[Rfam]
RNA sequence: ACCUUAUCAAGAGUGGUGGAGGAACAGGUCCUGUGAAGCCCGGCAACCAAUCGCUGAUGCGAUACGGUGCCAAUUCCUGCGGUAUAACCGAGAGAUGAGGG
Numbered sequence: 001a002c003c004u005u006a007u008c009a010a011g012a013g014u015g016g017u018g019g020a021g022g023a024a025c026a027g028g029u030c031c032u033g034u035g036a037a038g039c040c041c042g043g044c045a046a047c048c049a050a051u052c053g054c055u056g057a058u059g060c061g062a063u064a065c066g067g068u069g070c071c072a073a074u075u076c077c078u079g080c081g082g083u084a085u086a087a088c089c090g091a092g093a094g095a096u097g098a099g100g101g
Base pairs, nucleotide, nucleotide: 002100003099004098005097006096007095008094013041015040016039017038021031022030023029025079026078027077028076042071043070044069045068047067048066050063051062052061053060075093080090081089082088083087